[Rfam]
RNA: U11 spliceosomal RNA
Organism: Gallus gallus
RNA sequence: AAAAAGGGCUUCUGCCAUGCGUGGCAUGGGGGGGGGGCUUCAGCUACCCCCGUGGAAUCAAUGUCAAGAGAUUUUGGAAGCACAGUUUUUGUGGGAGGGGUUGCCAGAAACUGCCUGUUCUGGCACGAAA
Numbered sequence: 001a002a003a004a005a006g007g008g009c010u011u012c013u014g015c016c017a018u019g020c021g022u023g024g025c026a027u028g029g030g031g032g033g034g035g036g037g038c039u040u041c042a043g044c045u046a047c048c049c050c051c052g053u054g055g056a057a058u059c060a061a062u063g064u065c066a067a068g069a070g071a072u073u074u075u076g077g078a079a080g081c082a083c084a085g086u087u088u089u090u091g092u093g094g095g096a097g098g099g100g101u102u103g104c105c106a107g108a109a110a111c112u113g114c115c116u117g118u119u120c121u122g123g124c125a126c127g128a129a130a
Stems, first nucleotide, its partner, number of pairs: 008081005013026005027052006034045002038043001053076007100126002103124005109119003